[Rfam]
RNA sequence: CGGGUCUUGUCGGAGUGCCCGAACACCCCCAAAGGGGAGUGAGGGCUGAGAUCGCGAAAGCGGGAUCCGUGGAACCUGAACCGGUUAGUACCGGCGUAGGAAAACAAGCAACGCCCCUGA
Numbered sequence: 001c002g003g004g005u006c007u008u009g010u011c012g013g014a015g016u017g018c019c020c021g022a023a024c025a026c027c028c029c030c031a032a033a034g035g036g037g038a039g040u041g042a043g044g045g046c047u048g049a050g051a052u053c054g055c056g057a058a059a060g061c062g063g064g065a066u067c068c069g070u071g072g073a074a075c076c077u078g079a080a081c082c083g084g085u086u087a088g089u090a091c092c093g094g095c096g097u098a099g100g101a102a103a104a105c106a107a108g109c110a111a112c113g114c115c116c117c118u119g120a
Stems, first nucleotide, its partner, number of pairs: 006108005011069004016063001017046004053062003075100004081094004